A member of the RNA family "Purine riboswitch aptamer" from Clostridium puniceum, 100 nucleotides long. Gene Ontology term of the family: purine nucleobase biosynthetic process. Pairs were carried over by alignment from the consensus structure, which is taken from published work.

[Rfam]
RNA sequence: AAAUUGAUUAAGAUAAAUUCACGUAUAACUCCAAUAAUAAGGUUUGGAGGUCUCUACCAGGAACCAUUAAUUCCUGAUUACGAAGAAGAUGCAAUUAUUU
Numbered sequence: 001a002a003a004u005u006g007a008u009u010a011a012g013a014u015a016a017a018u019u020c021a022c023g024u025a026u027a028a029c030u031c032c033a034a035u036a037a038u039a040a041g042g043u044u045u046g047g048a049g050g051u052c053u054c055u056a057c058c059a060g061g062a063a064c065c066a067u068u069a070a071u072u073c074c075u076g077a078u079u080a081c082g083a084a085g086a087a088g089a090u091g092c093a094a095u096u097a098u099u100u
Stems, first nucleotide, its partner, number of pairs: 018086002022082004029049006058076006
The source organism's lineage runs through Bacteria, Bacillota, Clostridia, Eubacteriales and Clostridium.